[Rfam]
RNA sequence: UUGGUCUAAAUCGAUAUGGAUCCUACGUUUUGAAAAUGAAACCUACAUAAAACAGUGUGACAUACAUUGAUUUCACCCAA
Numbered sequence: 001u002u003g004g005u006c007u008a009a010a011u012c013g014a015u016a017u018g019g020a021u022c023c024u025a026c027g028u029u030u031u032g033a034a035a036a037u038g039a040a041a042c043c044u045a046c047a048u049a050a051a052a053c054a055g056u057g058u059g060a061c062a063u064a065c066a067u068u069g070a071u072u073u074c075a076c077c078c079a080a
Base pairs, nucleotide, nucleotide: 001080002079003078004077008073009072010071011070012069013068014067015066017064018063024057025056027053028052029051030050031049032048

The record is an 80-nucleotide RNA from Medicago truncatula, which matches "MIR5269 microRNA precursor family" in Rfam. The family has 2 seed sequences and 389 matches in Rfam 15.1.